[Rfam]
RNA: mir-16 microRNA precursor family
RNA sequence: GCAGCAGCAGCACAGAAGUAAGGGUGGCAUGCUAUGGUAUUGCCACCCUUACUUCUGUGCUGCUGCUGGC
Numbered sequence: 001g002c003a004g005c006a007g008c009a010g011c012a013c014a015g016a017a018g019u020a021a022g023g024g025u026g027g028c029a030u031g032c033u034a035u036g037g038u039a040u041u042g043c044c045a046c047c048c049u050u051a052c053u054u055c056u057g058u059g060c061u062g063c064u065g066c067u068g069g070c
Stems, first nucleotide, its partner, number of pairs: 001070002005068001006064008015054001017053008